[Rfam]
RNA sequence: CCAAGAUGAUGAGAUUCCACUGCAUUGGUCCGUGUUUCUGAGACGCAUGAUAUAAAUAGUGGAAGUUCUGAUUGG
Numbered sequence: 001c002c003a004a005g006a007u008g009a010u011g012a013g014a015u016u017c018c019a020c021u022g023c024a025u026u027g028g029u030c031c032g033u034g035u036u037u038c039u040g041a042g043a044c045g046c047a048u049g050a051u052a053u054a055a056a057u058a059g060u061g062g063a064a065g066u067u068c069u070g071a072u073u074g075g
Stems, first nucleotide, its partner, number of pairs: 001075004
Rfam assigns this 75-nucleotide RNA sequence from Eubucco bourcierii to the family "Small nucleolar RNA SNORD18". Clan: SNORD18 clan. Rfam 15.1 lists 2,622 matches to the family in 960 species. The literature on the family includes a 1993 paper in Nucleic Acids Res by Prislei et al., "Two different snoRNAs are encoded in introns of amphibian and human L1 ribosomal protein genes".